[Rfam]
RNA sequence: CAGACGCGUUUCUUACUACGGAUCGUCCGGCACGUUCCUGCCGGUGAAGGGAUGACAGA
Numbered sequence: 001c002a003g004a005c006g007c008g009u010u011u012c013u014u015a016c017u018a019c020g021g022a023u024c025g026u027c028c029g030g031c032a033c034g035u036u037c038c039u040g041c042c043g044g045u046g047a048a049g050g051g052a053u054g055a056c057a058g059a
Stems, first nucleotide, its partner, number of pairs: 009051003013047003027044006
The family of this 59-nucleotide sequence from Nocardioides cavernaquae is "msiK RNA".
The organism belongs to Nocardioides, within Bacteria.
It scores 53 bits against the family's covariance model.